[Rfam]
RNA sequence: CAGCGGCGAUUGAUCACGCCGAUGCCUGAACGAGGCCCGUCCCCCGCCUCUUCAGACAAGGAUAAAGGCUCCAUCCCCCCUCUCCGGCCUUUAUCCCAUAAAACGCCGCCAUGGCUCGUCCCCCUCCAGGCCAUGGCGGCAUUUU
Numbered sequence: 001c002a003g004c005g006g007c008g009a010u011u012g013a014u015c016a017c018g019c020c021g022a023u024g025c026c027u028g029a030a031c032g033a034g035g036c037c038c039g040u041c042c043c044c045c046g047c048c049u050c051u052u053c054a055g056a057c058a059a060g061g062a063u064a065a066a067g068g069c070u071c072c073a074u075c076c077c078c079c080c081u082c083u084c085c086g087g088c089c090u091u092u093a094u095c096c097c098a099u100a101a102a103a104c105g106c107c108g109c110c111a112u113g114g115c116u117c118g119u120c121c122c123c124c125u126c127c128a129g130g131c132c133a134u135g136g137c138g139g140c141a142u143u144u145u
Stems, first nucleotide, its partner, number of pairs: 026055005034048003060096010106139011
The family of this 145-nucleotide sequence from Martelella alba is "Alphaproteobacterial sRNA ar7". The pairing is the family consensus, mapped onto this sequence. The literature on the family includes a 2012 paper in RNA Biol by del Val et al., "A survey of sRNA families in alpha-proteobacteria".